The family of this 77-nucleotide RNA from Sphenodon punctatus is "Small nucleolar RNA SNORD34".
RNA sequence: UGCUGUCGAUGAUGCUACCUUUUACCUACAUUGUUUGACUCCAUGCAUGAGAAUUUUCUUCCAAAUCUGAGACGCGG
Numbered sequence: 001u002g003c004u005g006u007c008g009a010u011g012a013u014g015c016u017a018c019c020u021u022u023u024a025c026c027u028a029c030a031u032u033g034u035u036u037g038a039c040u041c042c043a044u045g046c047a048u049g050a051g052a053a054u055u056u057u058c059u060u061c062c063a064a065a066u067c068u069g070a071g072a073c074g075c076g077g
Stems, first nucleotide, its partner, number of pairs: 001077001004074004
The source organism's lineage runs through Eukaryota, Dipnotetrapodomorpha, Amniota, Sphenodontia and Sphenodon.
Rfam's curators write: snoRNA U34 is found in intron 5 of the ribosomal protein L13a gene in humans.
By type it is a C/D-box small nucleolar RNA.
Clan: SNORD34 clan.